[Rfam]
RNA sequence: GAGGCACCCCUGUGCAGCAGGACUUGCUUCAGUGGGGCUUUGGUGCUCACUGAGUCUGCCCCUGAGUGUGUCACU
Dot-bracket structure: (.(((((.(.((.(..(((.(((.....((((((((((....)).)))))))))))))).).)).).))))).).